[Rfam]
RNA sequence: UAUAAGUAGAUUGCAGCCUUUAUAGGCUAUGGCUGGUGGUUAUUUAAUCACCGGCCU
Numbered sequence: 001u002a003u004a005a006g007u008a009g010a011u012u013g014c015a016g017c018c019u020u021u022a023u024a025g026g027c028u029a030u031g032g033c034u035g036g037u038g039g040u041u042a043u044u045u046a047a048u049c050a051c052c053g054g055c056c057u
Base pairs, nucleotide, nucleotide: 015028016027017026018025031056032055033054034053035052036051037050038049039048040047